[Rfam]
RNA sequence: ACGGGCUAUUUCUGCGGACGCCCGUUCAGACGGGGCCGCUCGUCCAAGUCCGC
Numbered sequence: 001a002c003g004g005g006c007u008a009u010u011u012c013u014g015c016g017g018a019c020g021c022c023c024g025u026u027c028a029g030a031c032g033g034g035g036c037c038g039c040u041c042g043u044c045c046a047a048g049u050c051c052g053c
Stems, first nucleotide, its partner, number of pairs: 001025006014053005029044005
RNA: chrB-b RNA
Organism: Sphingomonas spermidinifaciens